[Rfam]
RNA sequence: AUGUACCAUAUGCGUACACUGCGGUUCUGAGCGCGCCGUCCACGCCCACCUGACGAGCGCUCGCGACGUUUUGUUAGCC
Number, nucleotide and partner (000 for none) at each position: 001a000002u018003g017004u016005a015006c014007c000008a000009u000010a000011u000012g000013c000014g006015u005016a004017c003018a002019c000020u000021g000022c038023g037024g036025u035026u000027c033028u000029g000030a000031g000032c000033g027034c000035g025036c024037c023038g022039u000040c000041c000042a000043c000044g000045c000046c000047c000048a000049c000050c077051u076052g075053a074054c073055g072056a071057g000058c000059g000060c000061u000062c000063g000064c000065g000066a000067c000068g000069u000070u000071u056072u055073g054074u053075u052076a051077g050078c000079c000

Shown here is a 79-nucleotide sequence from Xanthomonas oryzae, a member of the family "Xanthomonas sRNA sX9". Rfam classes the family as a small RNA. A reference for the family is Schmidtke et al. (2011), "Genome-wide transcriptome analysis of the plant pathogen Xanthomonas identifies sRNAs with putative virulence functions", Nucleic Acids Res.